[Rfam]
Nucleotides: 046
Stems, first nucleotide, its partner, number of pairs: 006021006
Number, partner (000 for none) and nucleotide at each position: 001000g002000a003000a004000a005000a006021g007020g008019c009018u010017c011016u012000u013000u014000u015000c016011a017010g018009a019008g020007c021006c022000a023000c024000c025000c026000a027000c028000u029000u030000a031000a032000u033000c034000a035000a036000c037000a038000a039000a040000a041000a042000g043000a044000g045000c046000u